RNA: T-box leader
RNA sequence: UUAAAUGCGAUGAUGGGAAUAAGUAAGCUCGAUUGUUUUUGCAUACAGAGAGCCGGUGGAUGGUGCGAACCGGUGCAAGCAUCGAUGCGGAAUGGGGCCCAGAGCAUACUUUCGGAAACUGACAGCUCAUGCUGCUGUCGAAGAUGUUUGUACGGCAGUUCCCCGUUAUGGAGCAAUAAGGCUUGUGGGUUUUUUAUGCGCUUAUUUCUGAAGAGAAGCGUACCAUAAGCGAAUUAGGGUGGCACCACGGUCCCUCGUCCCUUGC
Numbered sequence: 001u002u003a004a005a006u007g008c009g010a011u012g013a014u015g016g017g018a019a020u021a022a023g024u025a026a027g028c029u030c031g032a033u034u035g036u037u038u039u040u041g042c043a044u045a046c047a048g049a050g051a052g053c054c055g056g057u058g059g060a061u062g063g064u065g066c067g068a069a070c071c072g073g074u075g076c077a078a079g080c081a082u083c084g085a086u087g088c089g090g091a092a093u094g095g096g097g098c099c100c101a102g103a104g105c106a107u108a109c110u111u112u113c114g115g116a117a118a119c120u121g122a123c124a125g126c127u128c129a130u131g132c133u134g135c136u137g138u139c140g141a142a143g144a145u146g147u148u149u150g151u152a153c154g155g156c157a158g159u160u161c162c163c164c165g166u167u168a169u170g171g172a173g174c175a176a177u178a179a180g181g182c183u184u185g186u187g188g189g190u191u192u193u194u195u196a197u198g199c200g201c202u203u204a205u206u207u208c209u210g211a212a213g214a215g216a217a218g219c220g221u222a223c224c225a226u227a228a229g230c231g232a233a234u235u236a237g238g239g240u241g242g243c244a245c246c247a248c249g250g251u252c253c254c255u256c257g258u259c260c261c262u263u264g265c
Base pairs, nucleotide, nucleotide: 007105008104015100016099017098027088028087029085030084031083040077041076042075052074053073054072055071056070057069108151109150113146114145153165154164155163199231200230201229202228203227204226205225236262237261238260239259247258248257249256250255